[Rfam]
RNA sequence: UGGUUGUUACCAGGCUUUUAGAAUGCAAUUUCUCAUUUGCUGUGGCAAUAAACCAUAAAAACCCAUCCAUCUAGGGUUUUCCAUGUACUGCUAUAUGAGUAGGCAACCUUUUAGGAGCAUUU
Numbered sequence: 001u002g003g004u005u006g007u008u009a010c011c012a013g014g015c016u017u018u019u020a021g022a023a024u025g026c027a028a029u030u031u032c033u034c035a036u037u038u039g040c041u042g043u044g045g046c047a048a049u050a051a052a053c054c055a056u057a058a059a060a061a062c063c064c065a066u067c068c069a070u071c072u073a074g075g076g077u078u079u080u081c082c083a084u085g086u087a088c089u090g091c092u093a094u095a096u097g098a099g100u101a102g103g104c105a106a107c108c109u110u111u112u113a114g115g116a117g118c119a120u121u122u
Stems, first nucleotide, its partner, number of pairs: 003053002005050003010045003025040004068115001070113001075108004086101003
Small nucleolar RNA SNORA32: a 122-nucleotide sequence from Microtus ochrogaster.
Rfam links the family to the GO terms nucleolus and RNA processing.
ACA32 is a member of the H/ACA class of snoRNA that guide the sites of modification of uridines to pseudouridines.